[Rfam]
RNA sequence: UUAUAGGAUGUUUUAGCUAUUUAACUGUUUUGUCCCUGUCUAAUUCAGCACAAAUUGUUCUUUGACAGAGAGGGACAAAACAGUUAGAUAGCUAAAACGUCCUAUAAC
Number, nucleotide and partner (000 for none) at each position: 001u107002u106003a105004u104005a103006g102007g000008a000009u000010g000011u097012u096013u095014u094015a093016g092017c091018u090019a089020u088021u087022u086023a085024a084025c083026u082027g081028u080029u069030u068031u067032g066033u065034c064035c000036c000037u000038g000039u000040c000041u000042a000043a000044u000045u000046c000047a000048g000049c000050a058051c057052a056053a000054a000055u000056u052057g051058u050059u000060c000061u000062u000063u000064g034065a033066c032067a031068g030069a029070g000071a000072g000073g000074g000075a000076c000077a000078a000079a000080a028081c027082a026083g025084u024085u023086a022087g021088a020089u019090a018091g017092c016093u015094a014095a013096a012097a011098c000099g000100u000101c000102c006103u005104a004105u003106a002107a001108c000
RNA: mir-8517 microRNA precursor family